[Rfam]
RNA: tRNA
RNA sequence: GGCGCGGUGGCAGAGUGGUGAUGCAGCGGACUGCAAAUCCGUAUAUGUGGGUUCGAUUCCCACCCGUGCCU
Numbered sequence: 001g002g003c004g005c006g007g008u009g010g011c012a013g014a015g016u017g018g019u020g021a022u023g024c025a026g027c028g029g030a031c032u033g034c035a036a037a038u039c040c041g042u043a044u045a046u047g048u049g050g051g052u053u054c055g056a057u058u059c060c061c062a063c064c065c066g067u068g069c070c071u
Base pairs, nucleotide, nucleotide: 001070002069003068004067005066006065007064010024011023012022026042027041028040029039030038047063048062049061050060051059
Dot-bracket structure: (((((((..(((.........))).(((((.......)))))....(((((.......)))))))))))).